SAM-I/IV (S-adenosyl methionine) riboswitch aptamer: a 125-nucleotide RNA sequence. The sequence is in the family's curated seed alignment. Rfam links the family to the GO terms S-adenosylmethionine metabolic process and regulation of gene expression. The family is grouped with related families in Rfam's "SAM clan".

RNA sequence: UUUUAUCAUCAGGAGUGGUUUCAUAAUGAAACCCGCCAACCGAGCUUAGAAAAAUCAAAGUUACGGUGGUUUGAUCCUUAAACGGUAGAUGUGCCUAGGAAAAUAGGAAACAUGAUUAGCCGCCU
Numbered sequence: 001u002u003u004u005a006u007c008a009u010c011a012g013g014a015g016u017g018g019u020u021u022c023a024u025a026a027u028g029a030a031a032c033c034c035g036c037c038a039a040c041c042g043a044g045c046u047u048a049g050a051a052a053a054a055u056c057a058a059a060g061u062u063a064c065g066g067u068g069g070u071u072u073g074a075u076c077c078u079u080a081a082a083c084g085g086u087a088g089a090u091g092u093g094c095c096u097a098g099g100a101a102a103a104u105a106g107g108a109a110a111c112a113u114g115a116u117u118a119g120c121c122g123c124c125u
Base pairs, nucleotide, nucleotide: 007091008090009089010088015034017033018032019031020030021029035070036069037068040066041065042064043062044061045060046059047058094107095106096105097104